[Rfam]
RNA sequence: GCACUAGUAGUGUAGCGGUAUCACGUGACCUUGCCAUGGUCACAACCUGGGUUCAAAUCCCAGCUAGUGCA
Numbered sequence: 001g002c003a004c005u006a007g008u009a010g011u012g013u014a015g016c017g018g019u020a021u022c023a024c025g026u027g028a029c030c031u032u033g034c035c036a037u038g039g040u041c042a043c044a045a046c047c048u049g050g051g052u053u054c055a056a057a058u059c060c061c062a063g064c065u066a067g068u069g070c071a
Stems, first nucleotide, its partner, number of pairs: 001070007010024003026042005047063005
RNA: tRNA